RNA sequence: GACCGACAUCAGGGAUUCGUUCUGCGAGCCGUUGCCCACCGCCAGGUAGGAGUGCAUCCCCAGCUCUUUCAUCUGCUGCUCGCCGAUAACGCGGGUCACCACAUUCUGGCUGUAGCUGUCCGCCAACUGGCGCGCCUGGGAGGCCAGAUAGGCCGCGUUGCAGAUGUUCGGCGGCAUAUUGCCGAGAUCUUUCGC
Dot-bracket structure: ....((.....(.(.(((((...))))).).).((.....)).......(........)..(((..........)))((.(((((.(...((((((..(..(......)..).....))))))..).))))).))(((.((.((..........)).)).)))...((((((........)))))).))......
RNA: Yersinia sRNA 276